The family of this 153-nucleotide RNA sequence from Clostridiales bacterium KLE1615 is "Clostridiales-1 RNA". The family's RNA type in Rfam is small RNA.

RNA sequence: UAUUCAGAGCCAUGCAAAAUUGCUUUCUGUGAAUGCUUGCAUUCAGACAGAAUAGCAAUUUUAUAUGGCGAGGUAACCACAUGAGCAAAAUAGAAGCAUCGAAGAUGCGAUUUUGCGAAUGGGGUUCUGAAUAGUUACUAUUUAAUCGCAGUG
Numbered sequence: 001u002a003u004u005c006a007g008a009g010c011c012a013u014g015c016a017a018a019a020u021u022g023c024u025u026u027c028u029g030u031g032a033a034u035g036c037u038u039g040c041a042u043u044c045a046g047a048c049a050g051a052a053u054a055g056c057a058a059u060u061u062u063a064u065a066u067g068g069c070g071a072g073g074u075a076a077c078c079a080c081a082u083g084a085g086c087a088a089a090a091u092a093g094a095a096g097c098a099u100c101g102a103a104g105a106u107g108c109g110a111u112u113u114u115g116c117g118a119a120u121g122g123g124g125u126u127c128u129g130a131a132u133a134g135u136u137a138c139u140a141u142u143u144a145a146u147c148g149c150a151g152u153g
Stems, first nucleotide, its partner, number of pairs: 005153002010068004016062009026051005031044005075126004080121003085116004096108005131141004

A search with the family's covariance model found it, with a score of 56 bits.